[Rfam]
RNA: RNase MRP
RNA sequence: GAGUUCCUGCCAGUUCAGUUAUCAGGGUUACAAACGAACCUCUAAUGGUUCCCUCACCCUGUGGAAAGUCCCCGGAGACAGGGCGGAAAGCGUCGCAUCUUGAUGAUGUAGGCCGAGUUUGGCAUCGUAGGGAAGGAUAAGACCUGCGCGAUGUCAGCUCGUAGCGUUGCUCAGAGCACAGGUAAUGCUGUAAGGGACAAACACUGUCCUUAACCAAAUGGGGCUUACUCGGAUGGGAACU
Numbered sequence: 001g002a003g004u005u006c007c008u009g010c011c012a013g014u015u016c017a018g019u020u021a022u023c024a025g026g027g028u029u030a031c032a033a034a035c036g037a038a039c040c041u042c043u044a045a046u047g048g049u050u051c052c053c054u055c056a057c058c059c060u061g062u063g064g065a066a067a068g069u070c071c072c073c074g075g076a077g078a079c080a081g082g083g084c085g086g087a088a089a090g091c092g093u094c095g096c097a098u099c100u101u102g103a104u105g106a107u108g109u110a111g112g113c114c115g116a117g118u119u120u121g122g123c124a125u126c127g128u129a130g131g132g133a134a135g136g137a138u139a140a141g142a143c144c145u146g147c148g149c150g151a152u153g154u155c156a157g158c159u160c161g162u163a164g165c166g167u168u169g170c171u172c173a174g175a176g177c178a179c180a181g182g183u184a185a186u187g188c189u190g191u192a193a194g195g196g197a198c199a200a201a202c203a204c205u206g207u208c209c210u211u212a213a214c215c216a217a218a219u220g221g222g223g224c225u226u227a228c229u230c231g232g233a234u235g236g237g238a239a240c241u
Base pairs, nucleotide, nucleotide: 002241003240004239005238006237007236008235010232011231014192016190017189018188019187023061024060025059026058027057028056036051037050038049039048040047066226067225068224070223071222072221073220082094083093084092085091095109096108097107098106099105111165114161115160116159117158118157119156121155122154123153124152125151126150127149128148135144136143194210195209196208197207198206199205
Dot-bracket structure: .(((((((.((..[.[[[[...((((((.......(((((......)))))....))))))....(((.((((........((((.....))))(((((.....))))).(..((((((.((((((((......((......))...))))))))))))))...).....................]]]].].((((((.....)))))).........)))))))....))..)))))))